[Rfam]
RNA sequence: CGGAUAGAUUAUUGUAUUCGACGAUAUUCACGGCGUGAAACAGGCGAUUACACUAUUUCUAAACGGAAAAUGAAUCAAUUAGCAUAAUAGACUCCU
Numbered sequence: 001c002g003g004a005u006a007g008a009u010u011a012u013u014g015u016a017u018u019c020g021a022c023g024a025u026a027u028u029c030a031c032g033g034c035g036u037g038a039a040a041c042a043g044g045c046g047a048u049u050a051c052a053c054u055a056u057u058u059c060u061a062a063a064c065g066g067a068a069a070a071u072g073a074a075u076c077a078a079u080u081a082g083c084a085u086a087a088u089a090g091a092c093u094c095c096u
Stems, first nucleotide, its partner, number of pairs: 002095003009090007017082002020080002026075005034065003037059004042054002

Overview:
The record is a 96-nucleotide sequence from Nicotiana tabacum, which matches "MIR6152 microRNA precursor family" in Rfam. Rfam links the family to the GO terms miRNA-mediated post-transcriptional gene silencing and RISC complex. Pairs were carried over by alignment from the consensus structure, which was predicted with RNAalifold.